[Rfam]
This 239-nucleotide sequence from Rattus norvegicus belongs to the Rfam family "Small nucleolar RNA SNORD17". The source organism's lineage runs through Eukaryota, Eumetazoa, Dipnotetrapodomorpha, Murinae and Rattus. Rfam classes the family as a C/D-box small nucleolar RNA. Rfam describes the family as follows. The snoRNA HBI-43 belongs to the C/D family of snoRNAs, guiding 2'O-ribose methylation at position U3797 of the 28S rRNA. Pseudouridylation in position U3797 is predicted to be guided by the H/ACA snoRNA ACA48.
RNA sequence: GUGAAAUGAUGAUUCUGUUUAUCCAUUCGCUGAGUACGCUGCACUGACCUUCUUCCCAGUCCCAGUUCCUGUUCUGGGAGCUUGGGGCUGAGUAGCCUCCAACCCUGCAAUCUGCAGUGUUCUACUGUGGAUUGCUUGUGUGUUGGCAGACUACUACUGGUAAGAAUGGCUAGUGUCGGCAGGGAUGGCUCCCUCUCUGGGUUCCAUCUCACCAAGAUGAGUGGUGCAAAUCUGAUCAC
Numbered sequence: 001g002u003g004a005a006a007u008g009a010u011g012a013u014u015c016u017g018u019u020u021a022u023c024c025a026u027u028c029g030c031u032g033a034g035u036a037c038g039c040u041g042c043a044c045u046g047a048c049c050u051u052c053u054u055c056c057c058a059g060u061c062c063c064a065g066u067u068c069c070u071g072u073u074c075u076g077g078g079a080g081c082u083u084g085g086g087g088c089u090g091a092g093u094a095g096c097c098u099c100c101a102a103c104c105c106u107g108c109a110a111u112c113u114g115c116a117g118u119g120u121u122c123u124a125c126u127g128u129g130g131a132u133u134g135c136u137u138g139u140g141u142g143u144u145g146g147c148a149g150a151c152u153a154c155u156a157c158u159g160g161u162a163a164g165a166a167u168g169g170c171u172a173g174u175g176u177c178g179g180c181a182g183g184g185a186u187g188g189c190u191c192c193c194u195c196u197c198u199g200g201g202u203u204c205c206a207u208c209u210c211a212c213c214a215a216g217a218u219g220a221g222u223g224g225u226g227c228a229a230a231u232c233u234g235a236u237c238a239c
Stems, first nucleotide, its partner, number of pairs: 010238005017231004023224007030216002034212002038180004042175005048169002050166005055160002058089007065081006092154004097149002102141002104138001107135013182210007191201002